[Rfam]
The family of this 74-nucleotide RNA from Ureaplasma parvum is "tRNA".
RNA sequence: GCACCUGUAGCUCAGUUGGAUAGAGCAUACGCCUUCUAAGCGUACGGUCUGGGGUUCGAAUCCCUUCAGGUGCG
Numbered sequence: 001g002c003a004c005c006u007g008u009a010g011c012u013c014a015g016u017u018g019g020a021u022a023g024a025g026c027a028u029a030c031g032c033c034u035u036c037u038a039a040g041c042g043u044a045c046g047g048u049c050u051g052g053g054g055u056u057c058g059a060a061u062c063c064c065u066u067c068a069g070g071u072g073c074g
Stems, first nucleotide, its partner, number of pairs: 001073007010026004028044005051065004